[Rfam]
RNA: t44 RNA
Organism: Shewanella cyperi
RNA sequence: AUCACCCAAAUACUAAAUCACACACGUAUCGGCACAUUCUUCGGGGUGCUUUUGUCCACAAGCUUCAGGGUUUGAGGUGCAAGGGUCGAAGACAUGGGAUGCGUGGAGGUCUAAC
Number, nucleotide and partner (000 for none) at each position: 001a000002u000003c000004a000005c000006c000007c000008a000009a000010a000011u000012a000013c000014u000015a000016a000017a000018u000019c000020a000021c000022a000023c105024a104025c103026g102027u101028a100029u099030c098031g000032g000033c000034a000035c096036a095037u094038u000039c000040u090041u089042c088043g087044g000045g000046g000047u000048g086049c085050u084051u083052u082053u081054g080055u079056c000057c000058a000059c000060a000061a000062g000063c000064u000065u000066c000067a000068g000069g000070g000071u000072u000073u000074g000075a000076g000077g000078u000079g055080c054081a053082a052083g051084g050085g049086u048087c043088g042089a041090a040091g000092a000093c000094a037095u036096g035097g000098g030099a029100u028101g027102c026103g025104u024105g023106g000107a000108g000109g000110u000111c000112u000113a000114a000115c000